RNA sequence: UGCGAGAGUGAUGAGUUGCACUAAUCAGUCGGGGUGUUUUGAUGCAGUGGCGUCAAGACCCCGAUCCGACCCCAACCUGAGGACACACUGUGUGCACAGGGGCCAGCUGACUCCAC
Numbered sequence: 001u002g003c004g005a006g007a008g009u010g011a012u013g014a015g016u017u018g019c020a021c022u023a024a025u026c027a028g029u030c031g032g033g034g035u036g037u038u039u040u041g042a043u044g045c046a047g048u049g050g051c052g053u054c055a056a057g058a059c060c061c062c063g064a065u066c067c068g069a070c071c072c073c074a075a076c077c078u079g080a081g082g083a084c085a086c087a088c089u090g091u092g093u094g095c096a097c098a099g100g101g102g103c104c105a106g107c108u109g110a111c112u113c114c115a116c
Stems, first nucleotide, its partner, number of pairs: 006113003025069002028066001029064004034059002037057001041054005
RNA: Small nucleolar RNA SNORD67